Rfam assigns this 57-nucleotide RNA sequence from Gossypium mustelinum to the family "Plastid-ndhJ 3UTR RNA". By type it is a cis-regulatory element. Rfam describes the family as follows. Plastid ndhJ is a non-coding RNA (ncRNA) present in plastids. It was identified as a short stem-loop motif in the 3 prime untranslate region (3UTR) of ndhJ gene. Rfam 15.1 lists 869 matches to the family in 155 species. A reference for the family is Richter et al. (2023), "Retrograde signaling in plants: A critical review focusing on the GUN pathway and beyond", Plant Commun.
RNA sequence: CUGUAAACCUUGUAUUGCGCACAUCACUUAGGUGAACUCUAGAGAGUCACAUAGAAG
Dot-bracket structure: ..................(..((((.....))))..)....................